[Rfam]
RNA: atpB RNA
RNA sequence: CGAGCCGACCUGGUCGACUUGUUAGAUCGUCAAUGUCCGAUCGAACCGCAGACAGCAAUGCCUGCGGCCGACUACGGGAGAGACCGCUGAGCGUCACCUU
Dot-bracket structure: ((((.((((...)))).))))........................((((((.((....)).)))))).................................